RNA sequence: UCAUAACUGCAUGACUGGCGGAAGUAGGAAAACUACAGGGAGUGCAGUGAAGUAGAAUGUCGACCGCCUGGGCAACCGUU
Numbered sequence: 001u002c003a004u005a006a007c008u009g010c011a012u013g014a015c016u017g018g019c020g021g022a023a024g025u026a027g028g029a030a031a032a033c034u035a036c037a038g039g040g041a042g043u044g045c046a047g048u049g050a051a052g053u054a055g056a057a058u059g060u061c062g063a064c065c066g067c068c069u070g071g072g073c074a075a076c077c078g079u080u
Stems, first nucleotide, its partner, number of pairs: 004050001006048007015039002017068005024036004058074004

This 80-nucleotide sequence from Blautia hydrogenotrophica belongs to the Rfam family "ZMP/ZTP riboswitch aptamer (pfl RNA motif)".